Rfam assigns this 233-nucleotide part of an RNA from Elusimicrobium minutum to the family "Bacterial large subunit ribosomal RNA".
Taxonomically the source falls in Elusimicrobium minutum (Bacteria, Pseudomonadati, Elusimicrobiales, Elusimicrobium).

[Rfam]
RNA sequence: GAGUUAAUGUGCCUAGCAAGGUUAAGGGCUGAUGAGGUCCGGAGCCGUAGUGAAAGCGAGCCCGAAUAGGGCGAUUAGUUAGUCAUAUUAGACCCGAAGCCAAGUGAUCUAACCCUGUCCAGGAUGAAGUUCUCGUAACAGAGAAUGAAGGUCCGGAGUGUUGAACGUUGAAAAGUUCCUACAUGAGGUGGGGUUAGGGGUGAAAGGCCAAUCGAACUUGGUGAUAGCUGGUU
Number, nucleotide and partner (000 for none) at each position: 001g000002a000003g000004u000005u090006a089007a088008u087009g086010u085011g084012c000013c082014u081015a080016g079017c078018a000019a000020g046021g045022u044023u043024a000025a000026g040027g039028g038029c000030u000031g000032a000033u000034g000035a000036g000037g000038u028039c027040c026041g000042g000043a023044g022045c021046c020047g000048u000049a000050g057051u056052g000053a000054a000055a000056g051057c050058g000059a000060g072061c071062c070063c069064g000065a000066a000067u000068a000069g063070g062071g061072c060073g000074a000075u000076u000077a000078g017079u016080u015081a014082g013083u000084c011085a010086u009087a008088u007089u006090a005091g000092a000093c231094c230095c000096g228097a000098a000099g000100c221101c220102a219103a218104g217105u216106g000107a000108u000109c197110u196111a195112a194113c193114c192115c191116u190117g189118u188119c187120c185121a000122g154123g153124a152125u151126g000127a000128a000129g146130u145131u144132c143133u142134c141135g000136u000137a000138a000139c000140a000141g134142a133143g132144a131145a130146u129147g000148a000149a000150g000151g125152u124153c123154c122155g000156g000157a000158g182159u181160g180161u000162u000163g178164a177165a176166c175167g000168u000169u000170g000171a000172a000173a000174a000175g166176u165177u164178c163179c000180u160181a159182c158183a000184u000185g120186a000187g119188g118189u117190g116191g115192g114193g113194u112195u111196a110197g109198g000199g209200g208201u207202g000203a000204a000205a000206g000207g201208c200209c199210a000211a000212u000213c000214g000215a000216a105217c104218u103219u102220g101221g100222u000223g000224a000225u000226a000227g000228c096229u000230g094231g093232u000233u000